RNA sequence: CUUGAAGACCGCUAGGGUUCCGGGCUCAGAUCCGCCACAGAUCUGAGCCGUCUGGUCCGAGAGCAGUCGGCCACCAUCGCGUGGUUCCACGGAGGGACAAAAGCCCGGGAGAC
Numbered sequence: 001c002u003u004g005a006a007g008a009c010c011g012c013u014a015g016g017g018u019u020c021c022g023g024g025c026u027c028a029g030a031u032c033c034g035c036c037a038c039a040g041a042u043c044u045g046a047g048c049c050g051u052c053u054g055g056u057c058c059g060a061g062a063g064c065a066g067u068c069g070g071c072c073a074c075c076a077u078c079g080c081g082u083g084g085u086u087c088c089a090c091g092g093a094g095g096g097a098c099a100a101a102a103g104c105c106c107g108g109g110a111g112a113c
Base pairs, nucleotide, nucleotide: 007068008067009066011064012063015058016057020055021054022052023049024048025047026046027045028044029043030042031041032040069086070085071084072083073082074081088108090111094106095105096104